[Rfam]
RNA sequence: AAUCUGGUUGAUUCUGCCAGUAGUCAUACGCUUGUCUCAAAGAUUAAGCCAUGCACGUCUGAGAAUAAAGAGUUUUCUCUGAAUCUGCGAAUGGCUCAUUAUAUCAGUUAUAGUUUAUUUGAUAGUCCUUUACUACAUGGAUAACCGUAGUAAUUCUAGAGCUAAUACAUGCAUCAAAUCCCAACUGCUUGUCGGAAGGGAUGUAUUUAUUAGAUAGAAACCAAUGCGGGGCAACCCGGUAUUGUGGUGAAUCAUGAUAACUUUGCGGAUCGCCGGCCUAGCCAGCGACGAAUCAUUCAAGUUUCUGCCCUAUCAGCUUUGGAUGGUAGGGUAUUGGCCUACCAUGGCUCUAACGGGUAACGGAGAAUUGGGGUUCGAUUCCGGAGAGGGAGCCUGAGAGACGGCUACCACAUCCAAGGAAGGCAGCAGGCGCGUAAAUUACCCAAUCCUGACACAGGGAGGUAGUGACAAUAAAUAACAAUGCCGGGGUUUAACUCUGGCUAUUGGAAUGAGAACAAUUUAAAUCCCUUAUCGAGGAUCAAUUGGAGGGCAAGUCUGGUGCCAGCAGCCGCGGUAAUUCCAGCUCCAAUAGCGUAUACU
Numbered sequence: 001a002a003u004c005u006g007g008u009u010g011a012u013u014c015u016g017c018c019a020g021u022a023g024u025c026a027u028a029c030g031c032u033u034g035u036c037u038c039a040a041a042g043a044u045u046a047a048g049c050c051a052u053g054c055a056c057g058u059c060u061g062a063g064a065a066u067a068a069a070g071a072g073u074u075u076u077c078u079c080u081g082a083a084u085c086u087g088c089g090a091a092u093g094g095c096u097c098a099u100u101a102u103a104u105c106a107g108u109u110a111u112a113g114u115u116u117a118u119u120u121g122a123u124a125g126u127c128c129u130u131u132a133c134u135a136c137a138u139g140g141a142u143a144a145c146c147g148u149a150g151u152a153a154u155u156c157u158a159g160a161g162c163u164a165a166u167a168c169a170u171g172c173a174u175c176a177a178a179u180c181c182c183a184a185c186u187g188c189u190u191g192u193c194g195g196a197a198g199g200g201a202u203g204u205a206u207u208u209a210u211u212a213g214a215u216a217g218a219a220a221c222c223a224a225u226g227c228g229g230g231g232c233a234a235c236c237c238g239g240u241a242u243u244g245u246g247g248u249g250a251a252u253c254a255u256g257a258u259a260a261c262u263u264u265g266c267g268g269a270u271c272g273c274c275g276g277c278c279u280a281g282c283c284a285g286c287g288a289c290g291a292a293u294c295a296u297u298c299a300a301g302u303u304u305c306u307g308c309c310c311u312a313u314c315a316g317c318u319u320u321g322g323a324u325g326g327u328a329g330g331g332u333a334u335u336g337g338c339c340u341a342c343c344a345u346g347g348c349u350c351u352a353a354c355g356g357g358u359a360a361c362g363g364a365g366a367a368u369u370g371g372g373g374u375u376c377g378a379u380u381c382c383g384g385a386g387a388g389g390g391a392g393c394c395u396g397a398g399a400g401a402c403g404g405c406u407a408c409c410a411c412a413u414c415c416a417a418g419g420a421a422g423g424c425a426g427c428a429g430g431c432g433c434g435u436a437a438a439u440u441a442c443c444c445a446a447u448c449c450u451g452a453c454a455c456a457g458g459g460a461g462g463u464a465g466u467g468a469c470a471a472u473a474a475a476u477a478a479c480a481a482u483g484c485c486g487g488g489g490u491u492u493a494a495c496u497c498u499g500g501c502u503a504u505u506g507g508a509a510u511g512a513g514a515a516c517a518a519u520u521u522a523a524a525u526c527c528c529u530u531a532u533c534g535a536g537g538a539u540c541a542a543u544u545g546g547a548g549g550g551c552a553a554g555u556c557u558g559g560u561g562c563c564a565g566c567a568g569c570c571g572c573g574g575u576a577a578u579u580c581c582a583g584c585u586c587c588a589a590u591a592g593c594g595u596a597u598a599c600u
Base pairs, nucleotide, nucleotide: 004020005019006018007017008016022600023599024598026597027596028595029594030593031592032591035473037471041466042433048431049430050429052428053427054426057088058087062086063085064084069080070079095386096385097384105307106306107305110302111301114300115299120295121294122293123292136171137170138169139168145161148158149157150156178202179201180200181199182198185195186194207260208259209258210257211256212255220248221247222246223245228237229236230235270288271287272286273285275283276282277281309357310356311355316348317347318346323345324344325343326342327341328340329339330338361383362382363381364380365376366375367374368373388409389408391406392405393404411422413420414419439464441463442462443461447459448458449457450456451455479506480505481504483501484500485499486498487497488496489495490494513533514532515530517529543589544588545587546586547585548584556583557582558581559580565572566571

Shown here is a 600-nucleotide part of an RNA from Microchloropsis gaditana, a member of the family "Eukaryotic small subunit ribosomal RNA". The family's consensus secondary structure is taken from published work. It scores 1776 bits against the family's covariance model.